[Rfam]
RNA sequence: AGCAAAAUGAGGAGACUGAAACAUCUGAAUGUUAUCAUGUGGAGAACACACGUAUGGUCUUCAAAGUUCUCUGAUUGCU
Numbered sequence: 001a002g003c004a005a006a007a008u009g010a011g012g013a014g015a016c017u018g019a020a021a022c023a024u025c026u027g028a029a030u031g032u033u034a035u036c037a038u039g040u041g042g043a044g045a046a047c048a049c050a051c052g053u054a055u056g057g058u059c060u061u062c063a064a065a066g067u068u069c070u071c072u073g074a075u076u077g078c079u
Stems, first nucleotide, its partner, number of pairs: 001079005
Shown here is a 79-nucleotide RNA from Miscanthus lutarioriparius, a member of the family "Small nucleolar RNA R160". From the family's description: snoR160 is a C/D box small nucleolar RNA, which acts as a methylation guide for 25S ribosomal RNA in plants. snoR160 has been alternatively named snoZ270 in rice. By type it is a C/D-box small nucleolar RNA. The family has 9 seed sequences and 799 matches in Rfam 15.1. For this family Rfam cites "The high diversity of snoRNAs in plants: identification and comparative study of 120 snoRNA genes from Oryza sativa" (Chen et al., Nucleic Acids Res, 2003). The base pairs follow the family's consensus structure. The source organism's lineage runs through Eukaryota, Tracheophyta, Euphyllophyta, Poaceae and Miscanthus.